Shown here is a 99-nucleotide RNA, a member of the family "SAM riboswitch aptamer (S box leader)".
RNA sequence: AUUUCAUCACGAGUAGCGGAGGGAACGGCCCUUUGAAGCUACGGCAACCAUUCUUUAUGAAACGGUGCCAAAUCCGACGGAUAUUCCGACAGAUGAUGU
Numbered sequence: 001a002u003u004u005c006a007u008c009a010c011g012a013g014u015a016g017c018g019g020a021g022g023g024a025a026c027g028g029c030c031c032u033u034u035g036a037a038g039c040u041a042c043g044g045c046a047a048c049c050a051u052u053c054u055u056u057a058u059g060a061a062a063c064g065g066u067g068c069c070a071a072a073u074c075c076g077a078c079g080g081a082u083a084u085u086c087c088g089a090c091a092g093a094u095g096a097u098g099u
Base pairs, nucleotide, nucleotide: 001099002098004096005095006094007093008092013042014041015040016039017038021031022030023029026076027075028074043069044068045067046066048065049064051061052060053059073091078088079087080086081085